[Rfam]
RNA sequence: AUCUCUUUGCCUUUUGGCUUAGAUCAAGUGUAGUAUCUGUUCUUUUCAGUGUAACAGCUGAAACGUCAUCAUUGAUGACUUUACUAAUUGUUACCUUUAUUUUUGGACUACCAGCUGGCAGGCUUGAUGGGCUUGCUCACACCUACCAGCACAGUGUCGAUGCCAUUGCACACCCCGGUUUCUGACGCAAAUCUUU
Numbered sequence: 001a002u003c004u005c006u007u008u009g010c011c012u013u014u015u016g017g018c019u020u021a022g023a024u025c026a027a028g029u030g031u032a033g034u035a036u037c038u039g040u041u042c043u044u045u046u047c048a049g050u051g052u053a054a055c056a057g058c059u060g061a062a063a064c065g066u067c068a069u070c071a072u073u074g075a076u077g078a079c080u081u082u083a084c085u086a087a088u089u090g091u092u093a094c095c096u097u098u099a100u101u102u103u104u105g106g107a108c109u110a111c112c113a114g115c116u117g118g119c120a121g122g123c124u125u126g127a128u129g130g131g132c133u134u135g136c137u138c139a140c141a142c143c144u145a146c147c148a149g150c151a152c153a154g155u156g157u158c159g160a161u162g163c164c165a166u167u168g169c170a171c172a173c174c175c176c177g178g179u180u181u182c183u184g185a186c187g188c189a190a191a192u193c194u195u196u
Stems, first nucleotide, its partner, number of pairs: 004023003009018003044063006065079006114150005120144002128139004154188005160181001162179003

Annotation:
Shown here is a 196-nucleotide RNA sequence from Scheffersomyces stipitis, a member of the family "U2 spliceosomal RNA". Clan: U2 clan. Gene Ontology terms of the family: pre-mRNA branch point binding, mRNA branch site recognition and U2 snRNP. On this family, see Zwieb, Nucleic Acids Res 1997: "The uRNA database". The source organism's lineage runs through Eukaryota, Opisthokonta, Fungi, Ascomycota and Scheffersomyces stipitis. Rfam 15.1 lists 71,512 matches to the family in 2,642 species. The sequence is in the family's curated seed alignment.